RNA sequence: ACAUCGGCUCUUUUAAGAGCCACCGAACAGCCUUAGAUGCAAAAUAG
Numbered sequence: 001a002c003a004u005c006g007g008c009u010c011u012u013u014u015a016a017g018a019g020c021c022a023c024c025g026a027a028c029a030g031c032c033u034u035a036g037a038u039g040c041a042a043a044a045u046a047g
Base pairs, nucleotide, nucleotide: 006021007020008019009018010017011016

The record is a 47-nucleotide sequence from Nothobranchius furzeri, which matches "Histone 3' UTR stem-loop" in Rfam. The family has 50 seed sequences and 44,596 matches in Rfam 15.1. The organism belongs to Nothobranchius, within Eukaryota. A search with the family's covariance model found it, with a score of 35 bits.